RNA sequence: CUUGCUCCUAAAGGCAUUGCAGGUGUGACUGCUGGGUCACCUGUACGUCAGUGGGUGGCAGAGUAGAGAGAGGCUAUGUCUAUACUCAGUGUUCUGACCUUCGAGCAUCUGAAUGAUUAGUAGCCUAACACU
Numbered sequence: 001c002u003u004g005c006u007c008c009u010a011a012a013g014g015c016a017u018u019g020c021a022g023g024u025g026u027g028a029c030u031g032c033u034g035g036g037u038c039a040c041c042u043g044u045a046c047g048u049c050a051g052u053g054g055g056u057g058g059c060a061g062a063g064u065a066g067a068g069a070g071a072g073g074c075u076a077u078g079u080c081u082a083u084a085c086u087c088a089g090u091g092u093u094c095u096g097a098c099c100u101u102c103g104a105g106c107a108u109c110u111g112a113a114u115g116a117u118u119a120g121u122a123g124c125c126u127a128a129c130a131c132u
Stems, first nucleotide, its partner, number of pairs: 002061005007055004013049003019046001021044001025040005068129001071126007083115002086112004090107005
The family of this 132-nucleotide RNA is "Small nucleolar RNA SNORA17".
Rfam describes the family as follows. snoRNA ACA 17 belongs to the H/ACA family of snoRNAs and is predicted to guide pseudouridylation of the 28S rRNA at positions U4659 and U4598. It shares the same host gene together with ACA43. NB This family has a high threshold value to exclude a large number of closely related sequences that do not appear to have conserved H and ACA boxes, and may be pseudogenes.
The sequence is in the family's curated seed alignment.
The literature on the family includes a 1997 paper in J Mol Biol by Ofengand and Bakin, "Mapping to nucleotide resolution of pseudouridine residues in large subunit ribosomal RNAs from representative eukaryotes, prokaryotes, archaebacteria, mitochondria and chloroplasts".
The family is grouped with related families in Rfam's "SNORA17 clan".
It is annotated as an H/ACA-box small nucleolar RNA.
The base pairs follow the family's consensus structure, which was predicted with RNAalifold.